bZIP non canonical Hac1/Xbp1 intron: a 78-nucleotide RNA from Drosophila virilis. Rfam's curators put it in the seed alignment. Rfam classes the family as a small RNA. A reference for the family is Iracane et al. (2018), "Identification of an Exceptionally Long Intron in the HAC1 Gene of Candida parapsilosis", mSphere. The organism belongs to Drosophila, within Eukaryota. Rfam's curators write: bZIP intron RNA is a non-canonical intron that was first reported in HAC1 gene in yeast and XBP1 gene in Metazoa.
Nucleotides: 078
Stems, first nucleotide, its partner, number of pairs: 001078007009070005021035005042058005
Number, partner (000 for none) and nucleotide at each position: 001078g002077g003076c004075u005074g006073u007072g008000u009070g010069u011068c012067c013066a014000c015000a016000c017000u018000c019000a020000c021035u022034g023033g024032a025031u026000g027000c028000a029000g030000c031025a032024u033023c034022c035021a036000a037000u038000g039000c040000u041000g042058a043057c044056c045055c046054u047000c048000u049000g050000c051000a052000g053000c054046a055045g056044g057043g058042u059000a060000c061000a062000c063000a064000a065000g066013u067012g068011g069010a070009c071000a072007c073006a074005c075004a076003g077002u078001c
Pairs were carried over by alignment from the consensus structure, which was predicted with RNAfold.